[Rfam]
RNA sequence: GGAGGCUUGAGCGGAGCUGCCCCUAGUACGAGAGGACCGGGGUGGACGGACCUCUAGUGUACCAGUUGUGCCGCCAGGUGCACCGCUGGGUAGCUAUGUCCGGAAGGGAUAAGCGCUGAAAGCAUCUAAGCGCGAAGCCCACCGCAAGAUGAGGCCUCCCCUGCGGGCCGUCCGAGACCAGGACGUCGAUAGGCGGCAGGUGUAAGCGGGGUAACCCGUUGAGCCGAGCCGUACUAAUCGCCCGCGUG
Numbered sequence: 001g002g003a004g005g006c007u008u009g010a011g012c013g014g015a016g017c018u019g020c021c022c023c024u025a026g027u028a029c030g031a032g033a034g035g036a037c038c039g040g041g042g043u044g045g046a047c048g049g050a051c052c053u054c055u056a057g058u059g060u061a062c063c064a065g066u067u068g069u070g071c072c073g074c075c076a077g078g079u080g081c082a083c084c085g086c087u088g089g090g091u092a093g094c095u096a097u098g099u100c101c102g103g104a105a106g107g108g109a110u111a112a113g114c115g116c117u118g119a120a121a122g123c124a125u126c127u128a129a130g131c132g133c134g135a136a137g138c139c140c141a142c143c144g145c146a147a148g149a150u151g152a153g154g155c156c157u158c159c160c161c162u163g164c165g166g167g168c169c170g171u172c173c174g175a176g177a178c179c180a181g182g183a184c185g186u187c188g189a190u191a192g193g194c195g196g197c198a199g200g201u202g203u204a205a206g207c208g209g210g211g212u213a214a215c216c217c218g219u220u221g222a223g224c225c226g227a228g229c230c231g232u233a234c235u236a237a238u239c240g241c242c243c244g245c246g247u248g
Stems, first nucleotide, its partner, number of pairs: 001159008011145004017045007047102005055096003062089005067082006106140003113133005163245001165243004169185005190236003193232005199225002206219005
Dot-bracket structure: ((((((((..((((..(((((((...............))))))).(((((...(((....(((((((((((....))))))..)))))....))).)))))...(((....(((((...........)))))....))).))))......))))))))...(.(((((((((.......)))))....((((((((.((.....(((((....)))))....))..))))).)))...)))).)...

This 248-nucleotide part of an RNA from Rhodothermus marinus belongs to the Rfam family "Bacterial large subunit ribosomal RNA".
Pairs were carried over by alignment from the consensus structure, which is taken from published work.
Gene Ontology terms of the family: ribosome and structural constituent of ribosome.
Lineage of the source: Bacteria > Pseudomonadati > Rhodothermia > Rhodothermus > Rhodothermus marinus.